RNA: TPP riboswitch aptamer (THI element)
Organism: Treponema rectale
RNA sequence: AAAAUACAAACGGGGAGCUGUCGUAUAAAGACGGCUGAGAGUAGGAUGAAUGCCUAGACCCGAUAACCUGAUUUGGAUAAUGCCAACGUAGGGAUAUUUACUUCGCAUAAA
Numbered sequence: 001a002a003a004a005u006a007c008a009a010a011c012g013g014g015g016a017g018c019u020g021u022c023g024u025a026u027a028a029a030g031a032c033g034g035c036u037g038a039g040a041g042u043a044g045g046a047u048g049a050a051u052g053c054c055u056a057g058a059c060c061c062g063a064u065a066a067c068c069u070g071a072u073u074u075g076g077a078u079a080a081u082g083c084c085a086a087c088g089u090a091g092g093g094a095u096a097u098u099u100a101c102u103u104c105g106c107a108u109a110a111a
Stems, first nucleotide, its partner, number of pairs: 006099001008097001010095001011062004017035005042056004067092004073086004
Dot-bracket structure: .....(.(.(((((..(((((.........)))))......((((.......))))..))))....((((..((((......))))..))))..).).)............